[Rfam]
RNA sequence: GGCGUAAAGGGCUCGUAGGCGGUUUGUUGCGUCUGGUGUGAAAGCUUACUGCUUAACGGUAGGUUGCGCUGGAUACGGGCAGGCUUGAGUGCAGUAGGGGAGACUGGAAUUCUCGGUGUAACGGUGGAAUGUGUAGAUAUCGGGAAGAACACCUAUGGCGAAGGCAGGUCUCUGGGCUGUUACUGACGCUGAGGAGCGAAAGCGUGGGGAGCGAACAGGAUUAGAUACCCUGGUAGUCCAUGCUGUAAACGGUGGACGCUGGAUGUGGGGCCCAUUUCCACGGGUUCUGUGUCGGAGCUAACGCGUUAAGCGUCCCGCCUGGGGAGUACGGCCGCAAGGUUAAAACUCAAAGAAAU
Numbered sequence: 001g002g003c004g005u006a007a008a009g010g011g012c013u014c015g016u017a018g019g020c021g022g023u024u025u026g027u028u029g030c031g032u033c034u035g036g037u038g039u040g041a042a043a044g045c046u047u048a049c050u051g052c053u054u055a056a057c058g059g060u061a062g063g064u065u066g067c068g069c070u071g072g073a074u075a076c077g078g079g080c081a082g083g084c085u086u087g088a089g090u091g092c093a094g095u096a097g098g099g100g101a102g103a104c105u106g107g108a109a110u111u112c113u114c115g116g117u118g119u120a121a122c123g124g125u126g127g128a129a130u131g132u133g134u135a136g137a138u139a140u141c142g143g144g145a146a147g148a149a150c151a152c153c154u155a156u157g158g159c160g161a162a163g164g165c166a167g168g169u170c171u172c173u174g175g176g177c178u179g180u181u182a183c184u185g186a187c188g189c190u191g192a193g194g195a196g197c198g199a200a201a202g203c204g205u206g207g208g209g210a211g212c213g214a215a216c217a218g219g220a221u222u223a224g225a226u227a228c229c230c231u232g233g234u235a236g237u238c239c240a241u242g243c244u245g246u247a248a249a250c251g252g253u254g255g256a257c258g259c260u261g262g263a264u265g266u267g268g269g270g271c272c273c274a275u276u277u278c279c280a281c282g283g284g285u286u287c288u289g290u291g292u293c294g295g296a297g298c299u300a301a302c303g304c305g306u307u308a309a310g311c312g313u314c315c316c317g318c319c320u321g322g323g324g325a326g327u328a329c330g331g332c333c334g335c336a337a338g339g340u341u342a343a344a345a346c347u348c349a350a351a352g353a354a355a356u
Base pairs, nucleotide, nucleotide: 001319002318003317009316011197012196013195014194016191018190019189020188022084023083024082025081026080027079028078030077031076032073033072034071035070036069037068038067039066040065045063046062047061048060049059050058051057088184089183090182091180092179093178094177095176099173100172101171102170103169104168105167106150110146111145112144113143114142115141116140117139121132122131123130158165159164202243203242204241205240206239207238211237212236216232217231218230219229254315255314256313257312258311259310262293263292264291265290266289267288268287269286270285271284272283273282297304298303321348322347323346330341331340332339333338
Dot-bracket structure: (((.....(.((((.(.(((.(((((((.(((((((((((....(((((((.....))))))).)))))))))..)))))))))...((((((((...((((((((...((((((((...(((......)))......))))))))...).......((....)).)))))))..))))).)))...))))..))))....((((((...((...((((.........))))...))))))))..........((((((..((((((((((((........))))))))))))...((....)).....)))))))))).(((......((((....))))....)))........

The record is a 356-nucleotide part of an RNA from Scardovia wiggsiae, which matches "Bacterial small subunit ribosomal RNA" in Rfam. The match comes from Rfam's covariance-model search (1503 bits). The family's consensus secondary structure is taken from published work. Clan: SSU clan.